[Rfam]
RNA: rpsB sRNA
Organism: Ferrovibrio terrae
RNA sequence: CACACGCAGGCGUGCGCGGUUAUCGGGGAGACAUCCCGAUGCAGCGUUCCGGUGUCCCGGUUCCACCCACGACGGAAUCAUGGACGUGCCUGCGGCGGCCCAACCGGAGAAGGAUAUAGGA
Number, nucleotide and partner (000 for none) at each position: 001c097002a000003c095004a000005c094006g093007c092008a091009g090010g089011c088012g000013u000014g000015c000016g045017c044018g000019g000020u000021u000022a000023u000024c038025g037026g000027g036028g000029a000030g000031a000032c000033a000034u000035c000036c027037c025038g024039a000040u000041g000042c000043a000044g017045c016046g000047u000048u000049c000050c000051g000052g000053u000054g085055u084056c083057c082058c000059g000060g000061u000062u000063c000064c000065a000066c000067c000068c000069a000070c000071g000072a000073c000074g000075g000076a000077a000078u000079c000080a000081u000082g057083g056084a055085c054086g000087u000088g011089c010090c009091u008092g007093c006094g005095g003096c000097g001098g000099c000100c000101c000102a000103a000104c000105c000106g000107g000108a000109g000110a000111a000112g000113g000114a000115u000116a000117u000118a000119g000120g000121a000